[Rfam]
RNA: Small nucleolar RNA SNORD112
Organism: Aotus nancymaae
Nucleotides: 074
Base pairs, nucleotide, nucleotide: 001072002071003070004069005068006067
Number, partner (000 for none) and nucleotide at each position: 001072u002071g003070g004069a005068c006067c007000g008000a009000u010000g011000a012000u013000g014000a015000g016000a017000c018000a019000g020000u021000a022000u023000g024000u025000c026000a027000c028000g029000a030000a031000g032000c033000a034000a035000g036000g037000c038000u039000u040000a041000u042000g043000a044000u045000u046000a047000a048000u049000c050000c051000a052000g053000u054000g055000c056000u057000g058000u059000a060000c061000a062000c063000c064000u065000g066000a067006g068005g069004u070003c071002c072001a073000a074000u